[Rfam]
RNA sequence: AGAGGCCCUCUGCAGCCAGGGUGGAACGCUUGCCUCGUCGCCACGGUGAUGAGGUAAGCAUUCCGCCAGGCCGCUCACACUGCCCAU
Numbered sequence: 001a002g003a004g005g006c007c008c009u010c011u012g013c014a015g016c017c018a019g020g021g022u023g024g025a026a027c028g029c030u031u032g033c034c035u036c037g038u039c040g041c042c043a044c045g046g047u048g049a050u051g052a053g054g055u056a057a058g059c060a061u062u063c064c065g066c067c068a069g070g071c072c073g074c075u076c077a078c079a080c081u082g083c084c085c086a087u
Stems, first nucleotide, its partner, number of pairs: 004084003012074002015071003020067007028059006037050005
RNA: mir-9195 microRNA precursor family
Organism: Myotis lucifugus